[Rfam]
RNA sequence: CUUUUAUGAUGACAACGACACACGUCUUACGCUUUGUGUCAACGCCAGAGCCUGAAAAGGCGAACCCACUGGUGUUGCCUUGGCAAUAAGGGGAAGACCCGUUGGGGUUACCAACAGUCUGAAAGGA
Numbered sequence: 001c002u003u004u005u006a007u008g009a010u011g012a013c014a015a016c017g018a019c020a021c022a023c024g025u026c027u028u029a030c031g032c033u034u035u036g037u038g039u040c041a042a043c044g045c046c047a048g049a050g051c052c053u054g055a056a057a058a059g060g061c062g063a064a065c066c067c068a069c070u071g072g073u074g075u076u077g078c079c080u081u082g083g084c085a086a087u088a089a090g091g092g093g094a095a096g097a098c099c100c101g102u103u104g105g106g107g108u109u110a111c112c113a114a115c116a117g118u119c120u121g122a123a124a125g126g127a
Stems, first nucleotide, its partner, number of pairs: 001126004
Dot-bracket structure: ((((......................................................................................................................)))).
The record is a 127-nucleotide RNA from Mola mola, which matches "Small nucleolar RNA SNORD22" in Rfam. The base pairs follow the family's consensus structure, which was predicted with PFOLD. The literature on the family includes a 1996 paper in Nature by Tycowski et al., "A mammalian gene with introns instead of exons generating stable RNA products".